[Rfam]
Nucleotides: 060
Base pairs, nucleotide, nucleotide: 001060003058004057005056006055007054009052010051011050012049013048017044018043019042020041021040023038024037025036026035028033
Number, partner (000 for none) and nucleotide at each position: 001060c002000g003058c004057g005056g006055u007054c008000c009052u010051c011050g012049g013048u014000a015000g016000u017044g018043g019042u020041c021040u022000c023038c024037g025036g026035g027000a028033g029000u030000u031000u032000u033028c034000g035026c036025c037024c038023g039000u040021g041020g042019a043018c044017c045000u046000c047000g048013a049012u050011c051010g052009a053000a054007g055006a056005c057004c058003g059000g060001g

A member of the RNA family "Actino-pnp RNA" from Arthrobacter sunyaminii, 60 nucleotides long. NCBI's taxonomy places the organism under Bacteria, Actinomycetota, Micrococcales, Micrococcaceae, Arthrobacter. The family's RNA type in Rfam is cis-regulatory element.